A member of the RNA family "Eukaryotic large subunit ribosomal RNA" from Cryptomonas paramaecium, 455 nucleotides of a longer RNA. Pairs were carried over by alignment from the consensus structure, which is taken from published work. The source organism's lineage runs through Eukaryota, Cryptophyceae, Cryptomonadales, Cryptomonadaceae and Cryptomonas.
RNA sequence: UAAUCUCAAUUUAGGUAAGAUCACCCGCUGAACUUAAGCAUAUUAUUAAGCGGAGGAAAAGAAACUAACUAGGAUUCCUUUAGUAGCGGCGAGCGAAUCAGGAAUAGCUCAAGAUUUUAAACUAGCAAAUAGUUUUUUGUUGGUGAUGUAGUCUGUAGAAGCGCGAUGCGGAUAUUUCAAAUCGUUCUUUUUUUUUCGAAAAAAGUCUUCUGGAAAGGAGCGCCAAAGAGGGUGAUAGCCCCGUUGUGGAACGAUUUGUUCUUCUGAUUGUUUUUUCAUAUAAGCGCGCUUUGGUCGAGUCGAGUUGUUUGGGAGUACAGCUCUAAUUGGGUGGUAUACUUCAUCUAAAGCUAAAUAUAGACAAGAGUCCGAUAGAGAACAAGUACCGCGAGGGAAAGAUGAAAAGAACUUUGAGAAGAGAGUGAAAUAGUGCUUGAAAUUGUUUAGGGGAAAAG
Numbered sequence: 001u002a003a004u005c006u007c008a009a010u011u012u013a014g015g016u017a018a019g020a021u022c023a024c025c026c027g028c029u030g031a032a033c034u035u036a037a038g039c040a041u042a043u044u045a046u047u048a049a050g051c052g053g054a055g056g057a058a059a060a061g062a063a064a065c066u067a068a069c070u071a072g073g074a075u076u077c078c079u080u081u082a083g084u085a086g087c088g089g090c091g092a093g094c095g096a097a098u099c100a101g102g103a104a105u106a107g108c109u110c111a112a113g114a115u116u117u118u119a120a121a122c123u124a125g126c127a128a129a130u131a132g133u134u135u136u137u138u139g140u141u142g143g144u145g146a147u148g149u150a151g152u153c154u155g156u157a158g159a160a161g162c163g164c165g166a167u168g169c170g171g172a173u174a175u176u177u178c179a180a181a182u183c184g185u186u187c188u189u190u191u192u193u194u195u196u197c198g199a200a201a202a203a204a205g206u207c208u209u210c211u212g213g214a215a216a217g218g219a220g221c222g223c224c225a226a227a228g229a230g231g232g233u234g235a236u237a238g239c240c241c242c243g244u245u246g247u248g249g250a251a252c253g254a255u256u257u258g259u260u261c262u263u264c265u266g267a268u269u270g271u272u273u274u275u276u277c278a279u280a281u282a283a284g285c286g287c288g289c290u291u292u293g294g295u296c297g298a299g300u301c302g303a304g305u306u307g308u309u310u311g312g313g314a315g316u317a318c319a320g321c322u323c324u325a326a327u328u329g330g331g332u333g334g335u336a337u338a339c340u341u342c343a344u345c346u347a348a349a350g351c352u353a354a355a356u357a358u359a360g361a362c363a364a365g366a367g368u369c370c371g372a373u374a375g376a377g378a379a380c381a382a383g384u385a386c387c388g389c390g391a392g393g394g395a396a397a398g399a400u401g402a403a404a405a406g407a408a409c410u411u412u413g414a415g416a417a418g419a420g421a422g423u424g425a426a427a428u429a430g431u432g433c434u435u436g437a438a439a440u441u442g443u444u445u446a447g448g449g450g451a452a453a454a455g
Stems, first nucleotide, its partner, number of pairs: 024055001025053005035042002065072002076103004086094002106352004113153004118148002121144008159292001160290004166279003187270001190267002197258004205221001207220004224228001231241002302323007329346005386393002409420004